[Rfam]
RNA sequence: GAGGGUACCCUCCGACCCUCUUUAGUUCAACUAAAUGAACUAAAAUUUCAUAAUUUACUUCAUUUUUGAAAGUUUAGUUCAUUUGGUUGAACUAAGUAGGGUCGGAGGGUACCCUG
Numbered sequence: 001g002a003g004g005g006u007a008c009c010c011u012c013c014g015a016c017c018c019u020c021u022u023u024a025g026u027u028c029a030a031c032u033a034a035a036u037g038a039a040c041u042a043a044a045a046u047u048u049c050a051u052a053a054u055u056u057a058c059u060u061c062a063u064u065u066u067u068g069a070a071a072g073u074u075u076a077g078u079u080c081a082u083u084u085g086g087u088u089g090a091a092c093u094a095a096g097u098a099g100g101g102u103c104g105g106a107g108g109g110u111a112c113c114c115u116g
Base pairs, nucleotide, nucleotide: 002115003114004113005112006111007110008109009108010107011106012105013104014103015102016101017100018099019098021096022095023094024093025092026091027090028089029088030087031086032085033084034083035082036081037080038079039078040077041076042075043074